[Rfam]
RNA sequence: GGAGGAAACUCUGGAGAACUCUUAAGUGAGUGCCGAAGGUGCAAGGCUUAAACAGCCGAAUCUCUCAGGCAAACGGACAGAGCAAACGCG
Dot-bracket structure: ........(((((.....(((......))).(((((..(.(...((.........))....).))).))).......)))))........
Numbered sequence: 001g002g003a004g005g006a007a008a009c010u011c012u013g014g015a016g017a018a019c020u021c022u023u024a025a026g027u028g029a030g031u032g033c034c035g036a037a038g039g040u041g042c043a044a045g046g047c048u049u050a051a052a053c054a055g056c057c058g059a060a061u062c063u064c065u066c067a068g069g070c071a072a073a074c075g076g077a078c079a080g081a082g083c084a085a086a087c088g089c090g
Stems, first nucleotide, its partner, number of pairs: 009082005019030003032070003035066002039064001041062001045057002